RNA sequence: ACUACAUAGCUGGGGAGUUUGUAUGACAGGCUGAGAGGAAGGUGCGACCUUCGACCCAUAAACCUGAUUUGGAUCAUGCCAACGUAGGGAGACGAAAGACGUAAGAAA
Numbered sequence: 001a002c003u004a005c006a007u008a009g010c011u012g013g014g015g016a017g018u019u020u021g022u023a024u025g026a027c028a029g030g031c032u033g034a035g036a037g038g039a040a041g042g043u044g045c046g047a048c049c050u051u052c053g054a055c056c057c058a059u060a061a062a063c064c065u066g067a068u069u070u071g072g073a074u075c076a077u078g079c080c081a082a083c084g085u086a087g088g089g090a091g092a093c094g095a096a097a098g099a100c101g102u103a104a105g106a107a108a
Stems, first nucleotide, its partner, number of pairs: 007095001009093001011058004017031005038052005063088004069082004
This 108-nucleotide RNA from Firmicutes bacterium CAG:137 belongs to the Rfam family "TPP riboswitch aptamer (THI element)". The family's consensus secondary structure is taken from published work. The organism belongs to Bacillota, within Bacteria. It scores 65 bits against the family's covariance model.